[Rfam]
RNA sequence: UGGUGACCUGAGGCUCCCUGGCUGUCACUCUGUCCCAGUCCCUCCUGGCACACGGGGCACAGGUUGAAUCUUAGUAAAGUCUGUGGGUCCUGACCC
Numbered sequence: 001u002g003g004u005g006a007c008c009u010g011a012g013g014c015u016c017c018c019u020g021g022c023u024g025u026c027a028c029u030c031u032g033u034c035c036c037a038g039u040c041c042c043u044c045c046u047g048g049c050a051c052a053c054g055g056g057g058c059a060c061a062g063g064u065u066g067a068a069u070c071u072u073a074g075u076a077a078a079g080u081c082u083g084u085g086g087g088u089c090c091u092g093a094c095c096c
Stems, first nucleotide, its partner, number of pairs: 002095003005089005011082005021075004027069001029067002032064003038058005
The family of this 96-nucleotide RNA sequence from Canis lupus is "mir-8813 microRNA precursor family". It scores 68 bits against the family's covariance model. Rfam 15.1 lists 307 matches to the family in 4 species. The base pairs follow the family's consensus structure, which was predicted with RNAalifold.